Record summary:
Shown here is a 266-nucleotide RNA from Rachicladosporium sp. CCFEE 5018, a member of the family "Fungal signal recognition particle RNA". Gene Ontology terms of the family: signal recognition particle, plasma membrane targeting, SRP-dependent cotranslational protein targeting to membrane, signal sequence recognition and signal recognition particle, endoplasmic reticulum targeting.
[Rfam]
RNA sequence: AAGCUGUGAUGGCUCAACGGGCGGAAUUUCCUCUUGCCUCCACCUUCCCUUCACAAUUCCAAGGGCGUGUGUCCAGUUCGAACUCUGUGGUGGCCGUCCACUCGCUUCGGUAAUGAGCGAUUGCUGCGCACGGCCUUAAGCUGCUGCAAUAAACUUCAGCCGAGCAAUCGGGCAGAGAGUUGCAGGCCAUGGAGUGGCGGUGUUGGAUUACACACGUCUUUGGCGGGAACGGAUGGGGGUGGUUGAUGGGGUGUGUCACGCUUUUU
Dot-bracket structure: .(((.......)))....(((((.....((((..((((..(.((.(((.(((.(.....(..((((((((((((((((((.(((((((((.(.((((.(.((((((.((....))))))).....).).)))).)(...)...((((((....(((....(((....)))....)))..)))))).)))))))))..))).)))))...))))))))))...).).))).))).)).)..)))..).)))).......)))))...

NCBI's taxonomy places the organism under Eukaryota, Fungi, Dikarya, saccharomyceta, Rachicladosporium.
The family is grouped with related families in Rfam's "SRP clan".
By type it is a non-coding RNA gene.